[Rfam]
This 90-nucleotide RNA from Malus domestica belongs to the Rfam family "Small nucleolar RNA Z43". By type it is a C/D-box small nucleolar RNA. The base pairs follow the family's consensus structure, which was predicted with PFOLD. Lineage of the source: Eukaryota > Viridiplantae > Spermatophyta > Gunneridae > Malus. A reference for the family is Chen et al. (2003), "The high diversity of snoRNAs in plants: identification and comparative study of 120 snoRNA genes from Oryza sativa", Nucleic Acids Res.

RNA sequence: GGACGGUGAUCUUUUGUGUUUUGGUCUCUCGUCGUAAUGGCUUCUUUGGCCUUGCCGACUACUGUGAUAUUGCAUCAAUUGUCCGAGUCC
Numbered sequence: 001g002g003a004c005g006g007u008g009a010u011c012u013u014u015u016g017u018g019u020u021u022u023g024g025u026c027u028c029u030c031g032u033c034g035u036a037a038u039g040g041c042u043u044c045u046u047u048g049g050c051c052u053u054g055c056c057g058a059c060u061a062c063u064g065u066g067a068u069a070u071u072g073c074a075u076c077a078a079u080u081g082u083c084c085g086a087g088u089c090c
Stems, first nucleotide, its partner, number of pairs: 001090004044048001
Dot-bracket structure: ((((.......................................(...)......................................))))